[Rfam]
RNA: SAM riboswitch aptamer (S box leader)
RNA sequence: CUCUUAUCCUGAGUUGGCGGAGGGACAGGCCCGAUGAAACCCGGCAACCUUCUCAACGACAAGCGAUGAUUUUGAAGCCGUCAGGUAAAAGGACAUGCUUCUUAUGUCGUACCGGCGACGCGAGGGGCUUGUGAGAAAGGUGCUAACCUGAUGCAAGGUGUAAAUACCUUGAACGAUAAGAG
Dot-bracket structure: ((((((((....(..((....(((.[[.[))).......)))((((.((.(((((............................................................................)))))..))))))....]..]]((((((......))))))...))))))))